[Rfam]
Rfam assigns this 191-nucleotide RNA sequence from Chara braunii to the family "U2 spliceosomal RNA". It scores 82 bits against the family's covariance model.

RNA sequence: AUACCUUUCUCGGCCUUUUGGCUAAGUCAGAUCGAGUGCACUGUAUCUGUUCUGAUCAGUUUAAUUAUCAUCUGAUCUGUGGUCCAUCGGACCACACAAUAUUAAAUUAUUGGCCACGGAGGGGUCAUAUGGGUAAGCUUGCUUACUCGACCUCUCCAGGAAAAAAAAAAAAAAGGGCUGUUCGAAUCGAA
Numbered sequence: 001a002u003a004c005c006u007u008u009c010u011c012g013g014c015c016u017u018u019u020g021g022c023u024a025a026g027u028c029a030g031a032u033c034g035a036g037u038g039c040a041c042u043g044u045a046u047c048u049g050u051u052c053u054g055a056u057c058a059g060u061u062u063a064a065u066u067a068u069c070a071u072c073u074g075a076u077c078u079g080u081g082g083u084c085c086a087u088c089g090g091a092c093c094a095c096a097c098a099a100u101a102u103u104a105a106a107u108u109a110u111u112g113g114c115c116a117c118g119g120a121g122g123g124g125u126c127a128u129a130u131g132g133g134u135a136a137g138c139u140u141g142c143u144u145a146c147u148c149g150a151c152c153u154c155u156c157c158a159g160g161a162a163a164a165a166a167a168a169a170a171a172a173a174a175g176g177g178c179u180g181u182u183c184g185a186a187u188c189g190a191a
Stems, first nucleotide, its partner, number of pairs: 008031003012023004054077006079095007119156008134145004160183003164179001
Dot-bracket structure: .......(((.((((....)))).....)))......................((((((............)))))).(((((((...))))))).......................((((((((.......((((....))))...))))))))...(((.(..............).)))........
The literature on the family includes a 2001 paper in RNA by Newby and Greenbaum, "A conserved pseudouridine modification in eukaryotic U2 snRNA induces a change in branch-site architecture". Rfam's curators write: U2 is a small nuclear RNA (snRNA) component of the spliceosome (involved in pre-mRNA splicing). By type it is a spliceosomal small nuclear RNA.